[Rfam]
Shown here is a 162-nucleotide RNA sequence from Chenopodium quinoa, a member of the family "U1 spliceosomal RNA".
The base pairs follow the family's consensus structure, which is taken from published work.
The match comes from Rfam's covariance-model search (142 bits).
RNA sequence: UUACUUACCUGGACGGGGUCAAUGGGCGAUCAAGAAGGCCCAUGGCCUAGGUUGGUGGCCUCCAUUGCACAUAAGGAGGGGUGCCUGCCUAACAUCUUCCCAAGAGGAAGAGUGUACGUCAUAAUUUGUGAUAGUGGGGGCCUGCGUUCGCGCGGCCCCUAU
Numbered sequence: 001u002u003a004c005u006u007a008c009c010u011g012g013a014c015g016g017g018g019u020c021a022a023u024g025g026g027c028g029a030u031c032a033a034g035a036a037g038g039c040c041c042a043u044g045g046c047c048u049a050g051g052u053u054g055g056u057g058g059c060c061u062c063c064a065u066u067g068c069a070c071a072u073a074a075g076g077a078g079g080g081g082u083g084c085c086u087g088c089c090u091a092a093c094a095u096c097u098u099c100c101c102a103a104g105a106g107g108a109a110g111a112g113u114g115u116a117c118g119u120c121a122u123a124a125u126u127u128g129u130g131a132u133a134g135u136g137g138g139g140g141c142c143u144g145c146g147u148u149c150g151c152g153c154g155g156c157c158c159c160u161a162u
Base pairs, nucleotide, nucleotide: 012120013119014118015117016048017047018046019045020044021043023042024041025040026039027038049090050089051088053087055084056083057082059080060079061078062076063075092115093114094113095111096110097109099107100106135161136160137159138158139157143154144153145152146151